RNA sequence: GAUAAAUAUAAUCAAGGUUAUAUUUACAUGACUUGAAAAUUAAAUUCAAGAGAGUUUCAUUCUUUCAUCAUUAAUUUGAUGUAAAUACAUAAACAUUG
Numbered sequence: 001g002a003u004a005a006a007u008a009u010a011a012u013c014a015a016g017g018u019u020a021u022a023u024u025u026a027c028a029u030g031a032c033u034u035g036a037a038a039a040u041u042a043a044a045u046u047c048a049a050g051a052g053a054g055u056u057u058c059a060u061u062c063u064u065u066c067a068u069c070a071u072u073a074a075u076u077u078g079a080u081g082u083a084a085a086u087a088c089a090u091a092a093a094c095a096u097u098g
Stems, first nucleotide, its partner, number of pairs: 003026010066081004
Shown here is a 98-nucleotide RNA sequence, a member of the family "RT-9 RNA".